[Rfam]
RNA sequence: CCGUGGCUGGAACCGGUGCUAAAGGGUCUUUAACAGCCGGUGUUACAAGCCGGUGCUAAAGGGACCCUUUAGCACCGGUUCCAGCCACGGA
Numbered sequence: 001c002c003g004u005g006g007c008u009g010g011a012a013c014c015g016g017u018g019c020u021a022a023a024g025g026g027u028c029u030u031u032a033a034c035a036g037c038c039g040g041u042g043u044u045a046c047a048a049g050c051c052g053g054u055g056c057u058a059a060a061g062g063g064a065c066c067c068u069u070u071a072g073c074a075c076c077g078g079u080u081c082c083a084g085c086c087a088c089g090g091a
Stems, first nucleotide, its partner, number of pairs: 003088025029062002032057001034055001037052001040046002